[Rfam]
RNA sequence: GUCCUCCCGUCCUGUGGGUAGGUCAUCCACGGUAAGACCUCCCAAAGGGAGGCGCCUACCCACACCCGAGAGGGUAUAGGGCGGGAAGGAGGA
Dot-bracket structure: ....(((((((((.(((((((((............(.(((((.....))))))))))))))).((((....))))..))))))))).......